[Rfam]
RNA: Molybdenum/Tungsten riboswitch aptamer (Moco RNA motif)
Nucleotides: 137
Stems, first nucleotide, its partner, number of pairs: 006128001011123006020057007028050003034045004060075005078103011104114002
Number, partner (000 for none) and nucleotide at each position: 001000a002000u003000a004000a005000a006128a007000a008000a009000u010000a011123u012122u013121u014120u015119c016118u017000a018000g019000a020057g021056u022055u023054a024053a025052g026051u027000a028050u029049c030048c031000u032000a033000a034045g035044a036043a037042a038000g039000a040000a041000a042037u043036u044035u045034u046000a047000a048030g049029g050028a051026g052025c053024u054023u055022a056021a057020c058000c059000g060075g061074a062073a063072c064071u065000u066000u067000u068000a069000u070000a071064a072063g073062u074061u075060c076000a077000a078103g079102g080101g081100u082099a083098a084097u085096a086095c087094u088093u089000g090000a091000a092000a093088a094087g095086g096085u097084a098083u099082u100081a101080u102079c103078u104114c105113c106000a107000c108000g109000u110000u111000u112000u113105g114104g115000g116000a117000a118016g119015g120014a121013a122012a123011a124000u125000a126000a127000g128006u129000u130000g131000a132000u133000u134000u135000a136000a137000a